[Rfam]
RNA sequence: UGGGUGUGCUCAGAGCAGGUGGCCUGAAGAAUGGCUUCUCUGUUUACAACACACCCAAUAGAAAUUUAGGGUCGCUGUGACAAGGGGCACAACACUUGUGACUUCCCUGUGAGCAAAAGUCCCAGACAU
Numbered sequence: 001u002g003g004g005u006g007u008g009c010u011c012a013g014a015g016c017a018g019g020u021g022g023c024c025u026g027a028a029g030a031a032u033g034g035c036u037u038c039u040c041u042g043u044u045u046a047c048a049a050c051a052c053a054c055c056c057a058a059u060a061g062a063a064a065u066u067u068a069g070g071g072u073c074g075c076u077g078u079g080a081c082a083a084g085g086g087g088c089a090c091a092a093c094a095c096u097u098g099u100g101a102c103u104u105c106c107c108u109g110u111g112a113g114c115a116a117a118a119g120u121c122c123c124a125g126a127c128a129u
Stems, first nucleotide, its partner, number of pairs: 002056007013045007021037001022035003069122004076115003081111002084104003088100005
RNA: Small nucleolar RNA SNORA11
Organism: Octodon degus